[Rfam]
RNA sequence: UCAGAAUUGCAUAUUGGACCUCAUAUAAGUCGGGAAUAUGGCCCGAACGUUUCUACCUGGACACCGUAAAUGUCCGGACUAUGAGGGGAGACCAAGCAGUU
Number, nucleotide and partner (000 for none) at each position: 001u000002c000003a000004g000005a000006a000007u000008u000009g000010c000011a000012u000013a000014u000015u000016g000017g000018a000019c086020c085021u084022c083023a082024u081025a080026u000027a000028a000029g048030u046031c045032g044033g043034g042035a000036a000037u000038a000039u000040g000041g000042c034043c033044c032045g031046a030047a000048c029049g000050u000051u000052u000053c000054u000055a000056c000057c077058u076059g075060g074061a073062c072063a071064c000065c000066g000067u000068a000069a000070a000071u063072g062073u061074c060075c059076g058077g057078a000079c000080u025081a024082u023083g022084a021085g020086g019087g000088g000089a000090g000091a000092c000093c000094a000095a000096g000097c000098a000099g000100u000101u000
RNA: Purine riboswitch aptamer